[Rfam]
RNA: 6S / SsrS RNA
Organism: Serratia proteamaculans
RNA sequence: AUUUCUCUGAGAUGUUCGCCAGCGGGCCAGUCCCCUGAGCCGAUAUUUAGUACCAACAGAAUGUGAUGAUCCGCGAUCGGUGUGCAUGCUCGGCCCGCCGAGAAGCCUUAAGAUUGCGACAGCACGUUCACCUUGAACCAUGGGUUCAAGGGUUACAGCCUGCGACGGCAUCUCGGAGAUUCC
Numbered sequence: 001a002u003u004u005c006u007c008u009g010a011g012a013u014g015u016u017c018g019c020c021a022g023c024g025g026g027c028c029a030g031u032c033c034c035c036u037g038a039g040c041c042g043a044u045a046u047u048u049a050g051u052a053c054c055a056a057c058a059g060a061a062u063g064u065g066a067u068g069a070u071c072c073g074c075g076a077u078c079g080g081u082g083u084g085c086a087u088g089c090u091c092g093g094c095c096c097g098c099c100g101a102g103a104a105g106c107c108u109u110a111a112g113a114u115u116g117c118g119a120c121a122g123c124a125c126g127u128u129c130a131c132c133u134u135g136a137a138c139c140a141u142g143g144g145u146u147c148a149a150g151g152g153u154u155a156c157a158g159c160c161u162g163c164g165a166c167g168g169c170a171u172c173u174c175g176g177a178g179a180u181u182c183c
Stems, first nucleotide, its partner, number of pairs: 004179012017167002032152003036148006059129003063125003067121002070119001072118007084106002089102005